RNA: Histone 3' UTR stem-loop
RNA sequence: ACCAAGGCUCUUUUCAGAGCCACCCACAAAUUUCAUAAUGGGAGCU
Numbered sequence: 001a002c003c004a005a006g007g008c009u010c011u012u013u014u015c016a017g018a019g020c021c022a023c024c025c026a027c028a029a030a031u032u033u034c035a036u037a038a039u040g041g042g043a044g045c046u
Base pairs, nucleotide, nucleotide: 006021007020008019009018010017011016